[Rfam]
Nucleotides: 158
Base pairs, nucleotide, nucleotide: 002156003155004154005153006152007151008150009149010148011147012146015143017142018141019140032126033125034124037122038121039120040118041117042116057102058101059100061098062097063096064095065094070091071090072089073088074087075086076085
Number, partner (000 for none) and nucleotide at each position: 001000u002156g003155c004154g005153g006152u007151c008150u009149g010148c011147g012146c013000u014000u015143c016000a017142c018141g019140a020000c021000a022000g023000g024000a025000a026000c027000c028000a029000c030000a031000a032126u033125c034124c035000c036000u037122g038121g039120g040118g041117c042116c043000a044000u045000a046000c047000u048000c049000g050000a051000u052000c053000c054000a055000a056000c057102g058101g059100g060000a061098g062097c063096u064095g065094u066000c067000c068000c069000u070091g071090u072089c073088c074087a075086g076085g077000c078000u079000c080000g081000u082000g083000g084000g085076c086075c087074u088073g089072g090071g091070c092000a093000u094065a095064u096063g097062g098061c099000g100059c101058c102057c103000a104000c105000c106000u107000a108000c109000g110000u111000u112000u113000g114000u115000a116042g117041g118040c119000a120039c121038c122037c123000a124034g125033g126032a127000u128000c129000g130000u131000a132000a133000a134000c135000a136000u137000c138000c139000a140019u141018c142017g143015g144000u145000c146012g147011u148010g149009u150008g151007g152006a153005u154004c155003g156002c157000a158000c
Rfam assigns this 158-nucleotide sequence from Rhizobium sp. Leaf371 to the family "6S / SsrS RNA". A search with the family's covariance model found it, with a score of 82 bits. Pairs were carried over by alignment from the consensus structure, which is taken from published work. E. coli 6S RNA was the first non coding RNA to be sequenced, but its function was unknown until recently. By type it is a non-coding RNA gene.